[Rfam]
RNA sequence: AUCAUGGGGACGGCGAUCUCCCCACGAGGCGUCAGCUGGAGAAUCGCGUCCGCCUAUUCAUGAAGGACGCCCCAUG
Numbered sequence: 001a002u003c004a005u006g007g008g009g010a011c012g013g014c015g016a017u018c019u020c021c022c023c024a025c026g027a028g029g030c031g032u033c034a035g036c037u038g039g040a041g042a043a044u045c046g047c048g049u050c051c052g053c054c055u056a057u058u059c060a061u062g063a064a065g066g067a068c069g070c071c072c073c074a075u076g
Stems, first nucleotide, its partner, number of pairs: 005024006046070006
A member of the RNA family "chrB-a RNA" from Diploscapter pachys, 76 nucleotides long. The source organism's lineage runs through Eukaryota, Opisthokonta, Protostomia, Rhabditidae and Diploscapter. Pairs were carried over by alignment from the consensus structure, which is taken from published work. The family has 163 seed sequences and 347 matches in Rfam 15.1.